RT-15 RNA: a 177-nucleotide RNA sequence from Pseudomonas aeruginosa. It is one of the family's seed sequences.
[Rfam]
RNA sequence: CCGCGCCCGUUGGGUGAAGGCUAAGGCCUCCAUCCCUGCGCGCUGAAUCUGGUCUUGCCGCUGCCAUAUCUGGCACCGCCACGCGCACAACGGAAACCAUCAGGAACGACUGAACAGGUCCGGCGCAGUCUCUCGGCUGAGAAAUCGGCUGGGCGAUGUAGAUAGCAAGACAGGUCG
Numbered sequence: 001c002c003g004c005g006c007c008c009g010u011u012g013g014g015u016g017a018a019g020g021c022u023a024a025g026g027c028c029u030c031c032a033u034c035c036c037u038g039c040g041c042g043c044u045g046a047a048u049c050u051g052g053u054c055u056u057g058c059c060g061c062u063g064c065c066a067u068a069u070c071u072g073g074c075a076c077c078g079c080c081a082c083g084c085g086c087a088c089a090a091c092g093g094a095a096a097c098c099a100u101c102a103g104g105a106a107c108g109a110c111u112g113a114a115c116a117g118g119u120c121c122g123g124c125g126c127a128g129u130c131u132c133u134c135g136g137c138u139g140a141g142a143a144a145u146c147g148g149c150u151g152g153g154c155g156a157u158g159u160a161g162a163u164a165g166c167a168a169g170a171c172a173g174g175u176c177g
Stems, first nucleotide, its partner, number of pairs: 004042003012035005018029004053170006059078002062075005083126004091122004097118002100113004129156002132153009
By type it is a small RNA.